[Rfam]
Annotation: Shown here is a 137-nucleotide sequence from Anabas testudineus, a member of the family "Small nucleolar RNA SNORA22". Rfam classes the family as an H/ACA-box small nucleolar RNA.

RNA sequence: GUGCACAGUGAACACCCAGGGAUGCUGAUGUGGCUCCCCCUGGUCACUUGUAUCUGUGCUACAUCAAAUCUGAUCUGUACCUCUGCAUUAGGAGAGCCUGUUCCUCUCCUACAUGUAUUCAGCGGAUCAGAAUAAAC
Numbered sequence: 001g002u003g004c005a006c007a008g009u010g011a012a013c014a015c016c017c018a019g020g021g022a023u024g025c026u027g028a029u030g031u032g033g034c035u036c037c038c039c040c041u042g043g044u045c046a047c048u049u050g051u052a053u054c055u056g057u058g059c060u061a062c063a064u065c066a067a068a069u070c071u072g073a074u075c076u077g078u079a080c081c082u083c084u085g086c087a088u089u090a091g092g093a094g095a096g097c098c099u100g101u102u103c104c105u106c107u108c109c110u111a112c113a114u115g116u117a118u119u120c121a122g123c124g125g126a127u128c129a130g131a132a133u134a135a136a137c
Base pairs, nucleotide, nucleotide: 003059004058005057006056007055008054010053013050014049016043017042018041019040020039024034025033026032061076063074064073065072066071083122084121085120086115087114088113090110091109092108093107094106095105096104
The family's consensus secondary structure was predicted with RNAfold. Rfam 15.1 lists 883 matches to the family in 606 species. ACA22 is a member of the H/ACA class of snoRNA that guide the sites of modification of uridines to pseudouridines. The source organism's lineage runs through Eukaryota, Opisthokonta, Eumetazoa, Ctenosquamata and Anabas.